[Rfam]
RNA sequence: AAGUCCGCGCGUAACUGGCGAAUCGGUGGUGUACCACGAGGGAGCGCGCGGAACGGACAUAACCGCUCGCCUGGGUAAAGUGU
Numbered sequence: 001a002a003g004u005c006c007g008c009g010c011g012u013a014a015c016u017g018g019c020g021a022a023u024c025g026g027u028g029g030u031g032u033a034c035c036a037c038g039a040g041g042g043a044g045c046g047c048g049c050g051g052a053a054c055g056g057a058c059a060u061a062a063c064c065g066c067u068c069g070c071c072u073g074g075g076u077a078a079a080g081u082g083u
Stems, first nucleotide, its partner, number of pairs: 004052009015041002017071005026037004060078001062076003
Shown here is an 83-nucleotide RNA sequence from Paenibacillus hemerocallicola, a member of the family "ZMP/ZTP riboswitch aptamer (pfl RNA motif)". The organism belongs to Paenibacillus, within Bacteria.